Description: Shown here is a 47-nucleotide RNA sequence from Bacteroides sp. CAG:462, a member of the family "CRISPR RNA direct repeat element". Its family is annotated with defense response in the Gene Ontology. NCBI's taxonomy places the organism under Bacteria, Pseudomonadati, Bacteroidia, Bacteroidales, Bacteroides. It scores 48 bits against the family's covariance model. The family's consensus secondary structure was predicted with WAR.
Nucleotides: 047
Stems, first nucleotide, its partner, number of pairs: 014033001016031004
Number, partner (000 for none) and nucleotide at each position: 001000g002000u003000u004000g005000u006000g007000a008000c009000u010000u011000g012000c013000u014033u015000c016031c017030a018029a019028a020000u021000u022000a023000c024000u025000a026000u027000c028019u029018u030017u031016g032000a033014a034000c035000c036000a037000u038000c039000a040000g041000a042000g043000a044000c045000a046000g047000u